RNA sequence: UGACGGGGACCCGCACAAGCAGCGGAGCAUGUGGUUUAAUUCGACGCAACGCGAAGAACCUUACCAAGUCUUGACAUAUUACGGCGGGGUCUAGAGAUAGACUCUUACUUCUUCGGAAGACUGUAAUACAGGUGGUGCAUGGUUGUCGUCAGCUCGUGUCGUGAGAUGUUGGGUUAAGUCCCAUAACGAGCGCAACCCCUAUUGUUAGUUACCAUCAUUAAGUUGGGGACUCUAGCAAUACUGCCGGUGACAAACCGGAGGAAGGUGGGGAUGACGUCAAAUCAUCAUGCCCUUUAUGACUUGGGCUACACACGUGCUACAAUGGCAGGUACAGAGGGAAGCGAGACUGCGAAGUUAAGCAAAACUCAAAAAGCCUGUCCCAGUUCGGAUUGCACUCUGCAACUCGAGUGCAUGAAGUUGGAGUUGCUAGUAAUCGCAGAUCAGAAUGCUGCGGUGAAUGCGUUCCCGGGUCUUGUACACACCGCCCGUCACACCAUGGAAGUUGGCAAUACCCGAAGCCUGUGAGCUAACCUUUAGGGAGCAGCAGUCGAAGGUAGGGUCAGUAACUGGGGUGAAGUCGUAACAAGG
Numbered sequence: 001u002g003a004c005g006g007g008g009a010c011c012c013g014c015a016c017a018a019g020c021a022g023c024g025g026a027g028c029a030u031g032u033g034g035u036u037u038a039a040u041u042c043g044a045c046g047c048a049a050c051g052c053g054a055a056g057a058a059c060c061u062u063a064c065c066a067a068g069u070c071u072u073g074a075c076a077u078a079u080u081a082c083g084g085c086g087g088g089g090u091c092u093a094g095a096g097a098u099a100g101a102c103u104c105u106u107a108c109u110u111c112u113u114c115g116g117a118a119g120a121c122u123g124u125a126a127u128a129c130a131g132g133u134g135g136u137g138c139a140u141g142g143u144u145g146u147c148g149u150c151a152g153c154u155c156g157u158g159u160c161g162u163g164a165g166a167u168g169u170u171g172g173g174u175u176a177a178g179u180c181c182c183a184u185a186a187c188g189a190g191c192g193c194a195a196c197c198c199c200u201a202u203u204g205u206u207a208g209u210u211a212c213c214a215u216c217a218u219u220a221a222g223u224u225g226g227g228g229a230c231u232c233u234a235g236c237a238a239u240a241c242u243g244c245c246g247g248u249g250a251c252a253a254a255c256c257g258g259a260g261g262a263a264g265g266u267g268g269g270g271a272u273g274a275c276g277u278c279a280a281a282u283c284a285u286c287a288u289g290c291c292c293u294u295u296a297u298g299a300c301u302u303g304g305g306c307u308a309c310a311c312a313c314g315u316g317c318u319a320c321a322a323u324g325g326c327a328g329g330u331a332c333a334g335a336g337g338g339a340a341g342c343g344a345g346a347c348u349g350c351g352a353a354g355u356u357a358a359g360c361a362a363a364a365c366u367c368a369a370a371a372a373g374c375c376u377g378u379c380c381c382a383g384u385u386c387g388g389a390u391u392g393c394a395c396u397c398u399g400c401a402a403c404u405c406g407a408g409u410g411c412a413u414g415a416a417g418u419u420g421g422a423g424u425u426g427c428u429a430g431u432a433a434u435c436g437c438a439g440a441u442c443a444g445a446a447u448g449c450u451g452c453g454g455u456g457a458a459u460g461c462g463u464u465c466c467c468g469g470g471u472c473u474u475g476u477a478c479a480c481a482c483c484g485c486c487c488g489u490c491a492c493a494c495c496a497u498g499g500a501a502g503u504u505g506g507c508a509a510u511a512c513c514c515g516a517a518g519c520c521u522g523u524g525a526g527c528u529a530a531c532c533u534u535u536a537g538g539g540a541g542c543a544g545c546a547g548u549c550g551a552a553g554g555u556a557g558g559g560u561c562a563g564u565a566a567c568u569g570g571g572g573u574g575a576a577g578u579c580g581u582a583a584c585a586a587g588g
Base pairs, nucleotide, nucleotide: 001479002478003476004475005474007473008472009471010470011469012468013467015463016462019427020426021425022424023423024320026318027317028316029315030314031313032312033311034309035308040055041054042053043052064304065303066302067301068300069299070298077128078127080125081124082123083122084121087104088103089102090101091100092099093098108119109118110117111116131293132292134291135290136289137288140287141286142282143281144280145278147276148275152191153190154189155188156187157186158167159166160165170183171182172181173180197270198269199268200267202238203237204236205235206234207233208232212227213226216225217224241261242260244258245257246256247255248254324379325378326377327376328375329374330373336367337366338365341360342359346355347354348353386417391412392411393410394409395408396407397406433455434454435453436452437451438450439449482587484584487580488579492574493573494572495571497569498568499567502564503563504562505561506560507559510556511555512554513553518549520547521546522545523544526542527541528540531538532537